[Rfam]
RNA: TPP riboswitch aptamer (THI element)
Organism: Methyloglobulus morosus
RNA sequence: CGUAAUGGCUAGGGGUGCUUCGGUUUAUCUUUAAGGUUUUUCUUACAAGAUGGAUCGGGGCUGAGAAAUACCCUUUGAACCUGACCCCGGUUAAUGCCGGCGUAGGGAAGCCCAACAACUUCCCG
Numbered sequence: 001c002g003u004a005a006u007g008g009c010u011a012g013g014g015g016u017g018c019u020u021c022g023g024u025u026u027a028u029c030u031u032u033a034a035g036g037u038u039u040u041u042c043u044u045a046c047a048a049g050a051u052g053g054a055u056c057g058g059g060g061c062u063g064a065g066a067a068a069u070a071c072c073c074u075u076u077g078a079a080c081c082u083g084a085c086c087c088c089g090g091u092u093a094a095u096g097c098c099g100g101c102g103u104a105g106g107g108a109a110g111c112c113c114a115a116c117a118a119c120u121u122c123c124c125g
Stems, first nucleotide, its partner, number of pairs: 007112004011074004016068001017061015080106004087100004